[Rfam]
RNA sequence: GUGUAUGAUGCAUUAACUAUGACUAUUCAAUUCGAAACAGUCGUGAUCUGAUUAUAUCAUCGUGUCUGUUUAUGUGCAAUAAAAAAGAACUUGGUAAAGCUAUCCAGGUUCUUUUCUUU
Numbered sequence: 001g002u003g004u005a006u007g008a009u010g011c012a013u014u015a016a017c018u019a020u021g022a023c024u025a026u027u028c029a030a031u032u033c034g035a036a037a038c039a040g041u042c043g044u045g046a047u048c049u050g051a052u053u054a055u056a057u058c059a060u061c062g063u064g065u066c067u068g069u070u071u072a073u074g075u076g077c078a079a080u081a082a083a084a085a086a087g088a089a090c091u092u093g094g095u096a097a098a099g100c101u102a103u104c105c106a107g108g109u110u111c112u113u114u115u116c117u118u119u
Base pairs, nucleotide, nucleotide: 034073036071037069038068039065042062043061083115084114085113086112087111088110089109090108091107092106093105094104
RNA: Bacillus sRNA ncr1015